[Rfam]
RNA: Small nucleolar RNA SNORA65
RNA sequence: CCCGCCACUAUACCUGUCUGUCCCUGUGACUGAGUAUAAUCCAGUGGAGGCUCAGAGUGACCCGGCUUUAGGAAACAGAGCUGCUCAAACUCAUGGACAUCUCUGUGCCGUAAAGAUCGGAACAACG
Number, nucleotide and partner (000 for none) at each position: 001c000002c000003c000004g000005c047006c046007a045008c044009u043010a000011u000012a000013c000014c000015u000016g000017u000018c034019u033020g031021u029022c028023c000024c000025u000026g000027u000028g022029a021030c000031u020032g000033a019034g018035u000036a000037u000038a000039a000040u000041c000042c000043a009044g008045u007046g006047g005048a000049g000050g000051c000052u000053c000054a000055g000056a000057g000058u000059g000060a000061c000062c120063c119064g118065g117066c115067u114068u113069u112070a000071g109072g108073a000074a000075a000076c105077a104078g103079a102080g101081c000082u000083g000084c000085u096086c095087a000088a000089a000090c000091u000092c000093a000094u000095g086096g085097a000098c000099a000100u000101c080102u079103c078104u077105g076106u000107g000108c072109c071110g000111u000112a069113a068114a067115g066116a000117u065118c064119g063120g062121a000122a000123c000124a000125a000126c000127g000